Rfam assigns this 106-nucleotide sequence to the family "Small nucleolar RNA snoR97". The family's RNA type in Rfam is H/ACA-box small nucleolar RNA. Gene Ontology terms of the family: nucleolus and RNA processing.
RNA sequence: AUAAUAAAUCGGGCUUGGUGUCUGAAAAAACUCGUAUAUUUAUUUGUUGAUAUCAACUUCGUCUUGAAAAUUAAUCGGGCCGGAGUCAAACUACAGCAAUACAUUU
Numbered sequence: 001a002u003a004a005u006a007a008a009u010c011g012g013g014c015u016u017g018g019u020g021u022c023u024g025a026a027a028a029a030a031c032u033c034g035u036a037u038a039u040u041u042a043u044u045u046g047u048u049g050a051u052a053u054c055a056a057c058u059u060c061g062u063c064u065u066g067a068a069a070a071u072u073a074a075u076c077g078g079g080c081c082g083g084a085g086u087c088a089a090a091c092u093a094c095a096g097c098a099a100u101a102c103a104u105u106u
Base pairs, nucleotide, nucleotide: 044099045098046097047096048095049094056086057085058084059083060082062079063078064077